RNA sequence: CCCACAUGAUGUUACAAAUAUAUUUGCUACUUCAGACGCCUCCGGGCGAAUGAGACAUAUAAUUAUCACCAAGAUCUCUGAUGGG
Numbered sequence: 001c002c003c004a005c006a007u008g009a010u011g012u013u014a015c016a017a018a019u020a021u022a023u024u025u026g027c028u029a030c031u032u033c034a035g036a037c038g039c040c041u042c043c044g045g046g047c048g049a050a051u052g053a054g055a056c057a058u059a060u061a062a063u064u065a066u067c068a069c070c071a072a073g074a075u076c077u078c079u080g081a082u083g084g085g
Stems, first nucleotide, its partner, number of pairs: 001085004
RNA: Small nucleolar RNA SNORD24